[Rfam]
RNA: U2 spliceosomal RNA
RNA sequence: AUCGCUUCUCGGCUCUUUGAGCUAAGAUCAAAUGUGUAGUAUCUGUUCUUAUCAGCUUAAUAUCUGAUACAAUCCCCAUAGGGGAUUCAGAAUAUUAACCUCAUUUUUGGAGCAGGGUGGGUGUAUGGAGCUUGCUCCGUCCCUACUGCAGGUUGACCCGGUAUUGCAGUACUUCGGGUUCGGCCUAUAAUUA
Dot-bracket structure: ......(((.((((.....)))).)))......................((((((........)))))).(((((((...)))))))............................((((((.(...((((....)))).).))))))..((((((.(((((............)))))..)))))).......